[Rfam]
RNA sequence: UGGGCUGACGCGGGAGAGACCGGUGACACCCGGCGCCGAAGGAGCAACCGCCCCGGAAACUCUCAGGCAAAAGGACCGCCCAGCUCUA
Numbered sequence: 001u002g003g004g005c006u007g008a009c010g011c012g013g014g015a016g017a018g019a020c021c022g023g024u025g026a027c028a029c030c031c032g033g034c035g036c037c038g039a040a041g042g043a044g045c046a047a048c049c050g051c052c053c054c055g056g057a058a059a060c061u062c063u064c065a066g067g068c069a070a071a072a073g074g075a076c077c078g079c080c081c082a083g084c085u086c087u088a
Base pairs, nucleotide, nucleotide: 006083010079011078012077013076020033021032022031023030035068036067037066038064039063042062043061044060048056049055

The family of this 88-nucleotide RNA from Lichenicoccus roseus is "Glycine riboswitch aptamer".
The literature on the family includes a 2004 paper in Science by Mandal et al., "A glycine-dependent riboswitch that uses cooperative binding to control gene expression".
The base pairs follow the family's consensus structure.
Taxonomically the source falls in Lichenicoccus (Bacteria, Pseudomonadati, Alphaproteobacteria, Acetobacterales).